[Rfam]
RNA sequence: UGCUCAUCCAGAGGGGUGGAGGGACCGGCCCUGCGAAGCCCCGGCAACCCUCCCGGUCAUGACGGCUCGCGACGUGCGAGGCCGGCCGGGACAGGUGCCAAUUCCGGCCCGUGACCAAGGUGGUCGCAGGGCAAAGAUGAGGA
Numbered sequence: 001u002g003c004u005c006a007u008c009c010a011g012a013g014g015g016g017u018g019g020a021g022g023g024a025c026c027g028g029c030c031c032u033g034c035g036a037a038g039c040c041c042c043g044g045c046a047a048c049c050c051u052c053c054c055g056g057u058c059a060u061g062a063c064g065g066c067u068c069g070c071g072a073c074g075u076g077c078g079a080g081g082c083c084g085g086c087c088g089g090g091a092c093a094g095g096u097g098c099c100a101a102u103u104c105c106g107g108c109c110c111g112u113g114a115c116c117a118a119g120g121u122g123g124u125c126g127c128a129g130g131g132c133a134a135a136g137a138u139g140a141g142g143a
Stems, first nucleotide, its partner, number of pairs: 001143001003141006013042005021031003025107004043099004048095002051091008103135001109131002112128002